[Rfam]
RNA sequence: AAAAUUCUUCAGGGCAGGGUGAAAUUCCCGACCGACGGUAAAGUCCGUGAGUCGAUGCAAAUCGAUUGAACUGGUGAAAUUCCAGUACCGACAGUAGAGUCUGGAUGGGAGAAGAAUUAA
Numbered sequence: 001a002a003a004a005u006u007c008u009u010c011a012g013g014g015c016a017g018g019g020u021g022a023a024a025u026u027c028c029c030g031a032c033c034g035a036c037g038g039u040a041a042a043g044u045c046c047g048u049g050a051g052u053c054g055a056u057g058c059a060a061a062u063c064g065a066u067u068g069a070a071c072u073g074g075u076g077a078a079a080u081u082c083c084a085g086u087a088c089c090g091a092c093a094g095u096a097g098a099g100u101c102u103g104g105a106u107g108g109g110a111g112a113a114g115a116a117u118u119a120a
Stems, first nucleotide, its partner, number of pairs: 003118008017029003031100002033090002035048004043088002051066003070086005092103003
Dot-bracket structure: ..((((((((......(((.......))).[[((((((....[[))))..(((..........)))...(((((.......)))))]])).(((....]]))).......))))))))..